[Rfam]
RNA sequence: AAGUAUCUCCGAGUCCCGCCACGGAUGGUGGAGAUAGGAGUAACGGCUGGUUGGCACAGCCAUCGACGUACCUAUUUGAGAAGAAAACUGGUGCGUUCGCACCUCAAGAACAGAUCACGUCGUAAACCACAAUAUCCCAACGGCGGUCGGGAAUCCCACGACUUCAGUCGUGUGG
Numbered sequence: 001a002a003g004u005a006u007c008u009c010c011g012a013g014u015c016c017c018g019c020c021a022c023g024g025a026u027g028g029u030g031g032a033g034a035u036a037g038g039a040g041u042a043a044c045g046g047c048u049g050g051u052u053g054g055c056a057c058a059g060c061c062a063u064c065g066a067c068g069u070a071c072c073u074a075u076u077u078g079a080g081a082a083g084a085a086a087a088c089u090g091g092u093g094c095g096u097u098c099g100c101a102c103c104u105c106a107a108g109a110a111c112a113g114a115u116c117a118c119g120u121c122g123u124a125a126a127c128c129a130c131a132a133u134a135u136c137c138c139a140a141c142g143g144c145g146g147u148c149g150g151g152a153a154u155c156c157c158a159c160g161a162c163u164u165c166a167g168u169c170g171u172g173u174g175g
Stems, first nucleotide, its partner, number of pairs: 003044002007040004013035003016031006045061005064122006072113002075110003090103005135152004140147002154175002157172006

This 175-nucleotide RNA from Natronorubrum sulfidifaciens belongs to the Rfam family "Sense overlapping transcript RNA 0042 (sot)". Rfam's curators write: It is associated with IS1341-type transposase (tnpB) genes, at the 3'-end in H. salinarum NRC-1. The tetraloop structural motif may be functional. The source organism's lineage runs through Archaea, Methanobacteriati, Halobacteriales, Natrialbaceae and Natronorubrum sulfidifaciens.